[Rfam]
RNA: c-di-GMP-I riboswitch aptamer
RNA sequence: GAAACGUUCGGGCAAACCAACAGAAAUGUUGGGACGCAAAACUAUAGGGGCUACAACAUUAUGUUACGCCAGCCAGGUGCCGUU
Dot-bracket structure: ...........((...((((((....))))))...))..(.((...(((((....(((...)))...)))..)))).)......